The family of this 114-nucleotide RNA from Dethiosulfovibrio peptidovorans is "Glycine riboswitch aptamer". It scores 68 bits against the family's covariance model. Rfam describes the family as follows. This family represents the bacterial glycine riboswitch. Glycine riboswitches usually consist of two metabolite-binding aptamers domains with similar structures in tandem. Rfam links the family to the GO term glycine biosynthetic process.
RNA sequence: AUGAACGUCGCAAGAGAGACCUCUCUAUAUCCAUGCUUUCUUGGAAUGGAGGCGCCGAAGGUGCAAGGCCGGUAUGCGGUCGAAACUCUCAGGCAAAGGGAUUGCGACGGGACG
Numbered sequence: 001a002u003g004a005a006c007g008u009c010g011c012a013a014g015a016g017a018g019a020c021c022u023c024u025c026u027a028u029a030u031c032c033a034u035g036c037u038u039u040c041u042u043g044g045a046a047u048g049g050a051g052g053c054g055c056c057g058a059a060g061g062u063g064c065a066a067g068g069c070c071g072g073u074a075u076g077c078g079g080u081c082g083a084a085a086c087u088c089u090c091a092g093g094c095a096a097a098g099g100g101a102u103u104g105c106g107a108c109g110g111g112a113c114g
Base pairs, nucleotide, nucleotide: 006109007108008107009106010105011104012103013102020052021051022050023049054094055093056092057090058089061088063086067081068080069079070078071077